[Rfam]
RNA sequence: CGCUCCGAGGAGCGUUGCAGCGCCAUCAGGCGUGAGGCUCGGACCAUCAUCGCAACCACGCUCACCCGCU
Numbered sequence: 001c002g003c004u005c006c007g008a009g010g011a012g013c014g015u016u017g018c019a020g021c022g023c024c025a026u027c028a029g030g031c032g033u034g035a036g037g038c039u040c041g042g043a044c045c046a047u048c049a050u051c052g053c054a055a056c057c058a059c060g061c062u063c064a065c066c067c068g069c070u
Stems, first nucleotide, its partner, number of pairs: 002045001004043005021032004
This 70-nucleotide sequence from Variovorax sp. PBL-E5 belongs to the Rfam family "SAH (S-adenosyl-L-homocysteine) riboswitch aptamer". The base pairs follow the family's consensus structure, which is taken from published work. The source organism's lineage runs through Bacteria, Pseudomonadota, Betaproteobacteria, Comamonadaceae and Variovorax. A reference for the family is Wang et al. (2008), "Riboswitches that sense S-adenosylhomocysteine and activate genes involved in coenzyme recycling", Mol Cell.